[Rfam]
RNA sequence: AUAUAUGAUGGCUUCCUUGGAAUCUUGUUUGACUGAUAUUUGGCUGCUGGGACUAGAGUUCUUAUAUGC
Numbered sequence: 001a002u003a004u005a006u007g008a009u010g011g012c013u014u015c016c017u018u019g020g021a022a023u024c025u026u027g028u029u030u031g032a033c034u035g036a037u038a039u040u041u042g043g044c045u046g047c048u049g050g051g052a053c054u055a056g057a058g059u060u061c062u063u064a065u066a067u068g069c
Stems, first nucleotide, its partner, number of pairs: 023052005030046002033043001